[Rfam]
RNA sequence: UUCUUAUCAAGAGAGGUGGAGGGAUAUGGCCCUUUGAUACCUCGGCAGCGGGCUCAAUUUAUUGAGUACUGUGCCAAUUCCAUCAGACACUGGUCUGAAAGAUAAGAA
Numbered sequence: 001u002u003c004u005u006a007u008c009a010a011g012a013g014a015g016g017u018g019g020a021g022g023g024a025u026a027u028g029g030c031c032c033u034u035u036g037a038u039a040c041c042u043c044g045g046c047a048g049c050g051g052g053c054u055c056a057a058u059u060u061a062u063u064g065a066g067u068a069c070u071g072u073g074c075c076a077a078u079u080c081c082a083u084c085a086g087a088c089a090c091u092g093g094u095c096u097g098a099a100a101g102a103u104a105a106g107a108a
Base pairs, nucleotide, nucleotide: 001108002107003106004105005104006103007102008101013043014042015041016040017039021032022031023030026083027082028081029080044075045074046073047072049071050070052067053066054065055064079100084097085096086095087094088093